[Rfam]
RNA sequence: AACUUAAACGGGAAUGAUGUUCUCCCAUAGUUGAAAUUUAACUAAAACUGCUAAAUAGCUAAUGACGUCUACAUGCUU
Number, nucleotide and partner (000 for none) at each position: 001a000002a000003c000004u000005u000006a000007a000008a000009c000010g026011g025012g024013a023014a000015u000016g069017a068018u067019g066020u065021u064022c000023u013024c012025c011026c010027a000028u000029a000030g000031u000032u000033g000034a000035a000036a000037u000038u000039u000040a000041a000042c000043u000044a000045a000046a000047a000048c000049u000050g059051c058052u057053a000054a000055a000056u000057a052058g051059c050060u000061a000062a000063u000064g021065a020066c019067g018068u017069c016070u000071a000072c000073a000074u000075g000076c000077u000078u000

Fluoride riboswitch aptamer (crcB RNA motif): a 78-nucleotide RNA sequence from Vagococcus teuberi. The source organism's lineage runs through Bacteria, Bacillati, Bacillota, Bacilli and Vagococcus.